[Rfam]
RNA: ODC internal ribosome entry site (IRES)
RNA sequence: AGUGCCACAGCUGUACUGAAGGGACAUUUGUAGCCUUGUAUUUAACAGGACUUUAUCCUCCUGGAGAACCACCUUGGGUGUAAUGCUCAAAAUAGUUUGUCUUUAAAUUCUUUUAGUUUUCCAUUUUGUUGCACUUUAAAGGAACACCAAGAAACC
Numbered sequence: 001a002g003u004g005c006c007a008c009a010g011c012u013g014u015a016c017u018g019a020a021g022g023g024a025c026a027u028u029u030g031u032a033g034c035c036u037u038g039u040a041u042u043u044a045a046c047a048g049g050a051c052u053u054u055a056u057c058c059u060c061c062u063g064g065a066g067a068a069c070c071a072c073c074u075u076g077g078g079u080g081u082a083a084u085g086c087u088c089a090a091a092a093u094a095g096u097u098u099g100u101c102u103u104u105a106a107a108u109u110c111u112u113u114u115a116g117u118u119u120u121c122c123a124u125u126u127u128g129u130u131g132c133a134c135u136u137u138a139a140a141g142g143a144a145c146a147c148c149a150a151g152a153a154a155c156c
Base pairs, nucleotide, nucleotide: 010086011085014082015081016080017077019075020074021073022072027068047062048061049060050059095155096154097153100152101151102150103149108144109143110142111141